[Rfam]
RNA sequence: UUCUUAUCAAGAAAGGCAGAGGGAAAUGGCCCUGCGAAGCCUUAGCAACCAUCCUGUUUCACCAGACAGGAAAGGUGCUACAUCCAUCCGCAAUAGCGGAAAGAUAAGUC
Numbered sequence: 001u002u003c004u005u006a007u008c009a010a011g012a013a014a015g016g017c018a019g020a021g022g023g024a025a026a027u028g029g030c031c032c033u034g035c036g037a038a039g040c041c042u043u044a045g046c047a048a049c050c051a052u053c054c055u056g057u058u059u060c061a062c063c064a065g066a067c068a069g070g071a072a073a074g075g076u077g078c079u080a081c082a083u084c085c086a087u088c089c090g091c092a093a094u095a096g097c098g099g100a101a102a103g104a105u106a107a108g109u110c
Stems, first nucleotide, its partner, number of pairs: 003108006013043005021032003026087004044079004049075002052071006083102001088099004